[Rfam]
The family of this 115-nucleotide sequence from Stappia taiwanensis is "EcpR1". Perviously named SmelC291, SmrC10, or Sra33. According to its overproduction phenotype it was renamed Elongated Cell Phenotype RNA1. Induced by stress,EcpR1 negatively regulates cell cycle master regulatory genes dnaA and gcrA at post-transcriptional level by base pairing between its strongly conserved GC-rich loop and the target mRNAs. It's regulation is hfq-independent but requires RNase E to regulate dnaA. Rfam links the family to the GO terms regulation of translation in response to stress, negative regulation of cell cycle and mRNA binding. The base pairs follow the family's consensus structure, which was predicted with WAR. By type it is a small RNA. The organism belongs to Stappia, within Bacteria.
RNA sequence: GCGCCCUACGGAAGGUUCAGGUCCGCCGCAUCUCCUGACACCGUAGGGUUUGACCGGUGUCGGCGUGGAUCGGGGUGGCCUCCUCGGAUGAUCUGUGCUGUCACCGGUCGUCGCG
Numbered sequence: 001g002c003g004c005c006c007u008a009c010g011g012a013a014g015g016u017u018c019a020g021g022u023c024c025g026c027c028g029c030a031u032c033u034c035c036u037g038a039c040a041c042c043g044u045a046g047g048g049u050u051u052g053a054c055c056g057g058u059g060u061c062g063g064c065g066u067g068g069a070u071c072g073g074g075g076u077g078g079c080c081u082c083c084u085c086g087g088a089u090g091a092u093c094u095g096u097g098c099u100g101u102c103a104c105c106g107g108u109c110g111u112c113g114c115g
Base pairs, nucleotide, nucleotide: 003049004048005047006046007045008044009043010042017038018037019036020035021034051110052109053108054107055106056105057104058103059102061100